[Rfam]
RNA sequence: UGUAUCUUAGGUGAUGAAGUUCACCUUUAACCAUCUCUUCCGGGAUUGAUGACUUCUACUAUACA
Numbered sequence: 001u002g003u004a005u006c007u008u009a010g011g012u013g014a015u016g017a018a019g020u021u022c023a024c025c026u027u028u029a030a031c032c033a034u035c036u037c038u039u040c041c042g043g044g045a046u047u048g049a050u051g052a053c054u055u056c057u058a059c060u061a062u063a064c065a
Stems, first nucleotide, its partner, number of pairs: 010025004016056006033046004
RNA: Fluoride riboswitch aptamer (crcB RNA motif)